This 112-nucleotide RNA sequence from Brochothrix thermosphacta belongs to the Rfam family "PyrR binding site". The family's RNA type in Rfam is cis-regulatory element. Rfam describes the family as follows. This family represents the PyrR binding site and terminator structure.

RNA sequence: AACUCUUUUAAAUUAGUCCAGAGAGGCUGAUAAGGAGUUCCCAAUAGUGAUGGCGCUUUUGUGCCGUCUGCUAUGCCGAACUCUUAUGACCUCUCAUAAGAGUUAUUUUUUU
Numbered sequence: 001a002a003c004u005c006u007u008u009u010a011a012a013u014u015a016g017u018c019c020a021g022a023g024a025g026g027c028u029g030a031u032a033a034g035g036a037g038u039u040c041c042c043a044a045u046a047g048u049g050a051u052g053g054c055g056c057u058u059u060u061g062u063g064c065c066g067u068c069u070g071c072u073a074u075g076c077c078g079a080a081c082u083c084u085u086a087u088g089a090c091c092u093c094u095c096a097u098a099a100g101a102g103u104u105a106u107u108u109u110u111u112u
Base pairs, nucleotide, nucleotide: 003037004036005035006034007033008032013030014029015028016027017026018025045073046072047071049068050067051066052065053064054063055062056061079104080103081102082101083100084099085098086097087096088095089094
Overview
Rfam links the family to the GO terms pyrimidine nucleobase biosynthetic process and pyrimidine nucleobase transport. The match comes from Rfam's covariance-model search (69 bits).